[Rfam]
Rfam assigns this 192-nucleotide RNA from Crassaminicella thermophila to the family "Lysine riboswitch aptamer". Riboswitches are metabolite binding domains within certain messenger RNAs that serve as precision sensors for their corresponding targets.
RNA sequence: UUGUGUUUUAGAGGUUGCGAUGAACAAUGAGUAUUUUAGAAUAGGCUAAGGGAGCUGUUAUGUCUAGAAGAAAGGUGUCAUCGCCGAAGCAUAUUUCCCCUCCCUUGGGAUUUACUGCUGGUAUUAUGUUGAAUAAGCAUAAUACUGUCAUUGAUAGGUUGCCCAGUCUAUCAAUGGUGCGCUAUUUCACAC
Numbered sequence: 001u002u003g004u005g006u007u008u009u010a011g012a013g014g015u016u017g018c019g020a021u022g023a024a025c026a027a028u029g030a031g032u033a034u035u036u037u038a039g040a041a042u043a044g045g046c047u048a049a050g051g052g053a054g055c056u057g058u059u060a061u062g063u064c065u066a067g068a069a070g071a072a073a074g075g076u077g078u079c080a081u082c083g084c085c086g087a088a089g090c091a092u093a094u095u096u097c098c099c100c101u102c103c104c105u106u107g108g109g110a111u112u113u114a115c116u117g118c119u120g121g122u123a124u125u126a127u128g129u130u131g132a133a134u135a136a137g138c139a140u141a142a143u144a145c146u147g148u149c150a151u152u153g154a155u156a157g158g159u160u161g162c163c164c165a166g167u168c169u170a171u172c173a174a175u176g177g178u179g180c181g182c183u184a185u186u187u188c189a190c191a192c
Base pairs, nucleotide, nucleotide: 009184010183011182017084018083019082020081021080022079024078025077026076034069035068036067037066038065039064040063088119089118090117091116092114093113096110097109098108099107120146121145122144123143124142125141126140127139128138129137130136148177149176150175151174152173153172154171155170156169157168158167